S4-Bacteroidia ribosomal protein leader: a 37-nucleotide sequence. A reference for the family is Eckert and Weinberg (2020), "Discovery of 20 novel ribosomal leader candidates in bacteria and archaea", BMC Microbiol. The sequence is in the family's curated seed alignment. Its Rfam clan is "Ribosomal Protein S4 Leader clan".
RNA sequence: GACCACAAUUUUUAUCACCUCUCUGUGGUCGCGGCUG
Number, nucleotide and partner (000 for none) at each position: 001g030002a029003c028004c027005a026006c025007a024008a000009u000010u000011u000012u000013u000014a000015u000016c000017a000018c000019c000020u000021c000022u000023c000024u007025g006026u005027g004028g003029u002030c001031g000032c000033g000034g000035c000036u000037g000
Pairs were carried over by alignment from the consensus structure, which is taken from published work.